[Rfam]
RNA sequence: GGGUGUGAGUAUUACAUCAGGUACUGGUGUCUUUUUUUCAGCGACCAGUACUUGUGUUAUACUU
Numbered sequence: 001g002g003g004u005g006u007g008a009g010u011a012u013u014a015c016a017u018c019a020g021g022u023a024c025u026g027g028u029g030u031c032u033u034u035u036u037u038u039c040a041g042c043g044a045c046c047a048g049u050a051c052u053u054g055u056g057u058u059a060u061a062c063u064u
Base pairs, nucleotide, nucleotide: 008063009062010061011060014057015056016055017054020052021051022050023049024048025047026046027045028044
RNA: mir-12 microRNA precursor family
Organism: Nasonia longicornis